Shown here is a 91-nucleotide sequence from Medicago truncatula, a member of the family "MIR5298 microRNA precursor family". It scores 73 bits against the family's covariance model.

RNA sequence: UUAGGUUUUCUUCAUUUUCUUCUGGAAUUUUUAUGGGAUUCUUAUUGUUGAAGUUUGAUGAAAACAAUAUGAAGAUGAAAAAGAGGAGAAG
Numbered sequence: 001u002u003a004g005g006u007u008u009u010c011u012u013c014a015u016u017u018u019c020u021u022c023u024g025g026a027a028u029u030u031u032u033a034u035g036g037g038a039u040u041c042u043u044a045u046u047g048u049u050g051a052a053g054u055u056u057g058a059u060g061a062a063a064a065c066a067a068u069a070u071g072a073a074g075a076u077g078a079a080a081a082a083g084a085g086g087a088g089a090a091g
Stems, first nucleotide, its partner, number of pairs: 006084004011079009037056002040053001042051002